[Rfam]
RNA sequence: GCGUAACGCGUAUGGCUAUACGGCAGUCCCAAAACUGCCAAAGGUUACGGCAAGCCCAAAGAAUUGCAAGUCCGUUUUGCAAACAGAGAAUUUGCAUCACACAAGGCAUCGUGUGCUUGCUCGAUCAUAAAGAACCUUGGUCGGUUUCUCUGUUGCAAGCUUGUUCUGGUAAAAAACUUUGGGAUAAAGCUAUCUACUAACGGACAGUAGAUAGCUUUUU
Numbered sequence: 001g002c003g004u005a006a007c008g009c010g011u012a013u014g015g016c017u018a019u020a021c022g023g024c025a026g027u028c029c030c031a032a033a034a035c036u037g038c039c040a041a042a043g044g045u046u047a048c049g050g051c052a053a054g055c056c057c058a059a060a061g062a063a064u065u066g067c068a069a070g071u072c073c074g075u076u077u078u079g080c081a082a083a084c085a086g087a088g089a090a091u092u093u094g095c096a097u098c099a100c101a102c103a104a105g106g107c108a109u110c111g112u113g114u115g116c117u118u119g120c121u122c123g124a125u126c127a128u129a130a131a132g133a134a135c136c137u138u139g140g141u142c143g144g145u146u147u148c149u150c151u152g153u154u155g156c157a158a159g160c161u162u163g164u165u166c167u168g169g170u171a172a173a174a175a176a177c178u179u180u181g182g183g184a185u186a187a188a189g190c191u192a193u194c195u196a197c198u199a200a201c202g203g204a205c206a207g208u209a210g211a212u213a214g215c216u217u218u219u220u
Stems, first nucleotide, its partner, number of pairs: 002049006022039005029182005051163005064082006070205007083153008186218013